[Rfam]
RNA sequence: CUGAGGGAACUUCCUUGGGACACUGGGGAGCAUUAGGAGGUCUCCCAUGUGGGAGACCAGCCAUCCCUGUUUAAUAUUUAAACAGCAGUGUUUAGG
Number, nucleotide and partner (000 for none) at each position: 001c000002u000003g000004a024005g023006g000007g021008a000009a000010c018011u017012u000013c000014c000015u000016u000017g011018g010019g000020a000021c007022a000023c005024u004025g000026g000027g000028g000029a000030g000031c000032a000033u000034u060035a000036g000037g000038a000039g000040g057041u056042c055043u054044c053045c052046c051047a000048u000049g000050u000051g046052g045053g044054a043055g042056a041057c040058c000059a000060g034061c000062c000063a000064u000065c000066c000067c085068u084069g083070u082071u081072u080073a079074a078075u000076a000077u000078u074079u073080a072081a071082a070083c069084a068085g067086c000087a000088g000089u000090g000091u000092u000093u000094a000095g000096g000

Rfam assigns this 96-nucleotide RNA from Castor canadensis to the family "G-CSF factor stem-loop destabilising element (SLDE)". For this family Rfam cites "RNA destabilization by the granulocyte colony-stimulating factor stem-loop destabilizing element involves a single stem-loop that promotes deadenylation" (Putland et al., Mol Cell Biol, 2002). The source organism's lineage runs through Eukaryota, Deuterostomia, Rodentia, Castorimorpha and Castor. By type it is a cis-regulatory element. The base pairs follow the family's consensus structure, which is taken from published work.